[Rfam]
RNA sequence: GGAAUUCGGGCCGGCAGUAUCCUCCUCCCAUUGCCGUACCGAUGUGACUGGCAGCCACCUCCUCCUCCCAGGUUGCCAGUCGUGCAAAAUGGCGCUCACCGGAUCCUCCUCCCCCGGUGGGCGCUAUUU
Numbered sequence: 001g002g003a004a005u006u007c008g009g010g011c012c013g014g015c016a017g018u019a020u021c022c023u024c025c026u027c028c029c030a031u032u033g034c035c036g037u038a039c040c041g042a043u044g045u046g047a048c049u050g051g052c053a054g055c056c057a058c059c060u061c062c063u064c065c066u067c068c069c070a071g072g073u074u075g076c077c078a079g080u081c082g083u084g085c086a087a088a089a090u091g092g093c094g095c096u097c098a099c100c101g102g103a104u105c106c107u108c109c110u111c112c113c114c115c116g117g118u119g120g121g122c123g124c125u126a127u128u129u
Stems, first nucleotide, its partner, number of pairs: 007041003012036006046081010092124011
RNA: Alphaproteobacterial ar14
Organism: Hoeflea marina